L31-Actinobacteria ribosomal protein leader: a 55-nucleotide sequence.
[Rfam]
RNA sequence: CAGGUACCGGUUCACGCCCGCCGACGGCGGGAUGCGGCGUGGCGACCCGGCGACC
Numbered sequence: 001c002a003g004g005u006a007c008c009g010g011u012u013c014a015c016g017c018c019c020g021c022c023g024a025c026g027g028c029g030g031g032a033u034g035c036g037g038c039g040u041g042g043c044g045a046c047c048c049g050g051c052g053a054c055c
Stems, first nucleotide, its partner, number of pairs: 003055003007050004015044004019039004
Pairs were carried over by alignment from the consensus structure, which is taken from published work. Rfam's curators put it in the seed alignment. A reference for the family is Eckert and Weinberg (2020), "Discovery of 20 novel ribosomal leader candidates in bacteria and archaea", BMC Microbiol. By type it is a cis-regulatory leader.